[Rfam]
RNA: FMN riboswitch aptamer (RFN element)
Organism: Acholeplasma palmae
RNA sequence: UAAUAACUUCGGGGCGGAGCGGAAUUCUCCACCGGCAGUAUAGUCUGCGAGCGUUAAGCAUGAACUAGUGAGAUUCUAGUACCGACAGUUAAAGUCUGGAUGUGAGAAGAAAAAU
Numbered sequence: 001u002a003a004u005a006a007c008u009u010c011g012g013g014g015c016g017g018a019g020c021g022g023a024a025u026u027c028u029c030c031a032c033c034g035g036c037a038g039u040a041u042a043g044u045c046u047g048c049g050a051g052c053g054u055u056a057a058g059c060a061u062g063a064a065c066u067a068g069u070g071a072g073a074u075u076c077u078a079g080u081a082c083c084g085a086c087a088g089u090u091a092a093a094g095u096c097u098g099g100a101u102g103u104g105a106g107a108a109g110a111a112a113a114a115u
Stems, first nucleotide, its partner, number of pairs: 004112001007109004017029003031095002033084002035048004043082002064080005086098003